[Rfam]
RNA sequence: AUUUGCAAUGUAGCAUGCCCGUUUGGUGAAAUACUCUGAUGUUUAUAUGCUAUUUUAUUGCUUUUGGGUAACGGGGUGUUACAGCCAA
Numbered sequence: 001a002u003u004u005g006c007a008a009u010g011u012a013g014c015a016u017g018c019c020c021g022u023u024u025g026g027u028g029a030a031a032u033a034c035u036c037u038g039a040u041g042u043u044u045a046u047a048u049g050c051u052a053u054u055u056u057a058u059u060g061c062u063u064u065u066g067g068g069u070a071a072c073g074g075g076g077u078g079u080u081a082c083a084g085c086c087a088a
Base pairs, nucleotide, nucleotide: 002088003087005085006084009083010082011081012080013079014078015077016076018075019074020073021072022071023070
RNA: MIR2617 microRNA precursor family